[Rfam]
RNA sequence: GUCGAAGUACAGGGGUGCCGAAUACGGCUGAGACGGGCGACCGCCCGGACCCUUGACCUGAUCAAGGUAAUGCUUGCGUAGGAACAGUACCGGCAAAACGCGU
Numbered sequence: 001g002u003c004g005a006a007g008u009a010c011a012g013g014g015g016u017g018c019c020g021a022a023u024a025c026g027g028c029u030g031a032g033a034c035g036g037g038c039g040a041c042c043g044c045c046c047g048g049a050c051c052c053u054u055g056a057c058c059u060g061a062u063c064a065a066g067g068u069a070a071u072g073c074u075u076g077c078g079u080a081g082g083a084a085c086a087g088u089a090c091c092g093g094c095a096a097a098a099c100g101c102g103u
Stems, first nucleotide, its partner, number of pairs: 007090004011053004016047001017028004035046004057082004063076004
Notes:
The record is a 103-nucleotide RNA from Bifidobacterium adolescentis, which matches "TPP riboswitch aptamer (THI element)" in Rfam. Lineage of the source: Bacteria > Bacillati > Actinomycetota > Actinomycetes > Bifidobacterium adolescentis. Pairs were carried over by alignment from the consensus structure, which is taken from published work. About the family: Vitamin B(1) in its active form thiamin pyrophosphate (TPP) is an essential coenzyme that is synthesised by coupling of pyrimidine and thiazole moieties in bacteria. The previously detected thiamin-regulatory element, thi box was extended, resulting in a new, highly conserved RNA secondary structure, the THI element, which is widely distributed in eubacteria and also occurs in some archaea. Analysis of operon structures identified a large number of new candidate thiamin-regulated genes, mostly transporters, in various prokaryotic organisms. The THI element is a riboswitch that directly binds to TPP to regulate gene expression through a variety of mechanisms in archaea, bacteria and eukaryotes. through a variety of mechanisms in archaea, bacteria and eukaryotes.